[Rfam]
RNA sequence: CGGGAUGCGUCCCGCCGGAAUGUGGCUAACAUAGCUGAACCGUGAA
Number, nucleotide and partner (000 for none) at each position: 001c014002g013003g012004g011005a010006u000007g000008c000009g000010u005011c004012c003013c002014g001015c000016c042017g041018g040019a000020a000021u000022g000023u000024g036025g035026c034027u033028a032029a000030c000031a000032u028033a027034g026035c025036u024037g000038a000039a000040c018041c017042g016043u000044g000045a000046a000
The record is a 46-nucleotide RNA from Methanocella conradii, which matches "eL15-Euryarchaeota ribosomal protein leader" in Rfam. The sequence is in the family's curated seed alignment. The literature on the family includes a 2020 paper in BMC Microbiol by Eckert and Weinberg, "Discovery of 20 novel ribosomal leader candidates in bacteria and archaea". By type it is a cis-regulatory leader. The family's consensus secondary structure is taken from published work.